[Rfam]
Rfam assigns this 205-nucleotide RNA sequence from Streptomyces morookaense to the family "Streptomyces RNA 1601".
RNA sequence: UUCGACCGGCUGGACACGUGCGUGCCCGGCCCACAAGUGGAGGCUCCGAACUCCCACCUCGCCGACCCCGGGUCGGCAGGUCGUUUCCGGUCAGGCGGUGGCCAUCGUUCCGUACGGACGAUGGAGCCGCCCGAUGCGCCCCGCGGCUCCCCGUGGCGGUGUUCCGGUUUCUGGAGCCCCGCCUGUGCCGUCCGGGGCAUUUUUU
Numbered sequence: 001u002u003c004g005a006c007c008g009g010c011u012g013g014a015c016a017c018g019u020g021c022g023u024g025c026c027c028g029g030c031c032c033a034c035a036a037g038u039g040g041a042g043g044c045u046c047c048g049a050a051c052u053c054c055c056a057c058c059u060c061g062c063c064g065a066c067c068c069c070g071g072g073u074c075g076g077c078a079g080g081u082c083g084u085u086u087c088c089g090g091u092c093a094g095g096c097g098g099u100g101g102c103c104a105u106c107g108u109u110c111c112g113u114a115c116g117g118a119c120g121a122u123g124g125a126g127c128c129g130c131c132c133g134a135u136g137c138g139c140c141c142c143g144c145g146g147c148u149c150c151c152c153g154u155g156g157c158g159g160u161g162u163u164c165c166g167g168u169u170u171c172u173g174g175a176g177c178c179c180c181g182c183c184u185g186u187g188c189c190g191u192c193c194g195g196g197g198c199a200u201u202u203u204u205u
Stems, first nucleotide, its partner, number of pairs: 004092006012027002028082004035059001037057004041052002061077007094131005102124008138198006144190003152187003155183005161177005
NCBI's taxonomy places the organism under Bacteria, Bacillati, Actinomycetota, Actinomycetes, Streptomyces. A search with the family's covariance model found it, with a score of 153 bits. About the family: Identified by deep sequencing of transcriptome at the end of exponential growth phase. A reference for the family is Vockenhuber et al. (2011), "Deep sequencing-based identification of small non-coding RNAs in Streptomyces coelicolor", RNA Biol.